[Rfam]
RNA sequence: AGAGUAAGUCAGCCUAAUCUAACGAAUCUUUGGAAUCUCGUUAGAGCGGAGGAACCACCCUGUGGGGCGAAUCUUGGGAAAGUUGAAGGUAAAAAGCAUCCUCAUUACUUCCUAAGAGGGGCAUCUCUCAGCCCUAGCCCGUCAGCUAACUUCGUAGGCAUUGAGGGAGACUGA
Numbered sequence: 001a002g003a004g005u006a007a008g009u010c011a012g013c014c015u016a017a018u019c020u021a022a023c024g025a026a027u028c029u030u031u032g033g034a035a036u037c038u039c040g041u042u043a044g045a046g047c048g049g050a051g052g053a054a055c056c057a058c059c060c061u062g063u064g065g066g067g068c069g070a071a072u073c074u075u076g077g078g079a080a081a082g083u084u085g086a087a088g089g090u091a092a093a094a095a096g097c098a099u100c101c102u103c104a105u106u107a108c109u110u111c112c113u114a115a116g117a118g119g120g121g122c123a124u125c126u127c128u129c130a131g132c133c134c135u136a137g138c139c140c141g142u143c144a145g146c147u148a149a150c151u152u153c154g155u156a157g158g159c160a161u162u163g164a165g166g167g168a169g170a171c172u173g174a
Base pairs, nucleotide, nucleotide: 012159013158014157018045019044020043021042022041023040024039025038046155047154048153049152050151051150056064057063065140066139067138073116074115075114076113077112078111079110080109119134120133121132122131
Dot-bracket structure: ...........(((...((((((((............))))))))((((((....((.....))(((.....((((((((............................))))))))..((((........))))...))).........)))))).)))...............

Shown here is a 174-nucleotide sequence from Calothrix sp. 336/3, a member of the family "c-di-AMP riboswitch aptamer (ydaO/yuaA leader)".